[Rfam]
Rfam assigns this 70-nucleotide RNA to the family "RAGATH-21 RNA". It is one of the family's seed sequences. It is annotated as a small RNA. Pairs were carried over by alignment from the consensus structure, which is taken from published work.
RNA sequence: AGCACACGUCCUUAAUAGAAACGGCUUUAUGCCGGAGGUUGAAAAGCGGGGGCAAUUUCCGGCGUGUGCA
Numbered sequence: 001a002g003c004a005c006a007c008g009u010c011c012u013u014a015a016u017a018g019a020a021a022c023g024g025c026u027u028u029a030u031g032c033c034g035g036a037g038g039u040u041g042a043a044a045a046g047c048g049g050g051g052g053c054a055a056u057u058u059c060c061g062g063c064g065u066g067u068g069c070a
Stems, first nucleotide, its partner, number of pairs: 002069009022034004038047003048060003